Annotation: Shown here is a 67-nucleotide RNA from Pipistrellus kuhlii, a member of the family "mir-9256 microRNA precursor family". Rfam links the family to the GO terms RISC complex and miRNA-mediated post-transcriptional gene silencing. The base pairs follow the family's consensus structure, which was predicted with RNAalifold.
RNA sequence: AUAUACGCUGAGUGACCGGAUUAUUAUGAUCUCUAAAUGCAUAAUAAUCUGGCCACUCAGUGUAUAU
Number, nucleotide and partner (000 for none) at each position: 001a000002u000003a000004u064005a063006c062007g061008c060009u059010g058011a057012g056013u055014g054015a000016c052017c051018g000019g049020a048021u047022u046023a045024u044025u043026a042027u041028g040029a000030u000031c000032u000033c000034u000035a000036a000037a000038u000039g000040c028041a027042u026043a025044a024045u023046a022047a021048u020049c019050u000051g017052g016053c000054c014055a013056c012057u011058c010059a009060g008061u007062g006063u005064a004065u000066a000067u000
Source information:
Lineage of the source: Eukaryota > Chordata > Teleostomi > Dipnotetrapodomorpha > Pipistrellus.